[Rfam]
RNA sequence: AGCUCAAUGAUUGCAUGCCUUUAUUGGCAAUAUACGCUAUGCUGAUUUAUAUCAUGAGUAGAUAAGGCUUUUUAAGUAUGAGAGCU
Number, nucleotide and partner (000 for none) at each position: 001a086002g085003c084004u083005c082006a000007a000008u000009g000010a000011u000012u000013g000014c000015a000016u000017g000018c000019c000020u000021u000022u000023a000024u000025u000026g000027g000028c000029a000030a000031u000032a000033u000034a000035c000036g000037c000038u000039a000040u000041g000042c000043u000044g000045a000046u000047u000048u000049a000050u000051a000052u000053c000054a000055u000056g000057a000058g000059u000060a000061g000062a000063u000064a000065a000066g000067g000068c000069u000070u000071u000072u000073u000074a000075a000076g000077u000078a000079u000080g000081a000082g005083a004084g003085c002086u001
The family of this 86-nucleotide sequence from Capsicum annuum is "Small nucleolar RNA U54". Clan: U54 clan. On this family, see Chen et al., Nucleic Acids Res 2003: "The high diversity of snoRNAs in plants: identification and comparative study of 120 snoRNA genes from Oryza sativa". Pairs were carried over by alignment from the consensus structure, which was predicted with PFOLD. U54 is a C/D box small nucleolar RNA, which acts as a methylation guide for 18S ribosomal RNA in plants. Taxonomically the source falls in Capsicum (Eukaryota, eudicotyledons, asterids, Solanales). Its family is annotated with RNA processing and nucleolus in the Gene Ontology.